[Rfam]
Source information:
This 190-nucleotide sequence belongs to the Rfam family "Lysine riboswitch aptamer". About the family: Riboswitches are metabolite binding domains within certain messenger RNAs that serve as precision sensors for their corresponding targets.

RNA sequence: UUCCAUCGCCGAGGUGCUGAAUUCAAAAGAAUUCAUCGUCGAGGGGCUGAUUUUGAAGGAAGAAGGGAGGAAUUUCAUCGCCGAGGUGCUGAAUUCGAAAGAAUUCAGCGUCGAGGGGCUGAUUUUGAAGUAAGAAGGGAGGAACUUCAUCUCGAGGUGCUGAAUUUGAAGGAAUUCAGCGUCGAGAUGA
Numbered sequence: 001u002u003c004c005a006u007c008g009c010c011g012a013g014g015u016g017c018u019g020a021a022u023u024c025a026a027a028a029g030a031a032u033u034c035a036u037c038g039u040c041g042a043g044g045g046g047c048u049g050a051u052u053u054u055g056a057a058g059g060a061a062g063a064a065g066g067g068a069g070g071a072a073u074u075u076c077a078u079c080g081c082c083g084a085g086g087u088g089c090u091g092a093a094u095u096c097g098a099a100a101g102a103a104u105u106c107a108g109c110g111u112c113g114a115g116g117g118g119c120u121g122a123u124u125u126u127g128a129a130g131u132a133a134g135a136a137g138g139g140a141g142g143a144a145c146u147u148c149a150u151c152u153c154g155a156g157g158u159g160c161u162g163a164a165u166u167u168g169a170a171g172g173a174a175u176u177c178a179g180c181g182u183c184g185a186g187a188u189g190a
Stems, first nucleotide, its partner, number of pairs: 006185003010181002016081002018077004023072001032064003036060002039057001085112012113158001160179007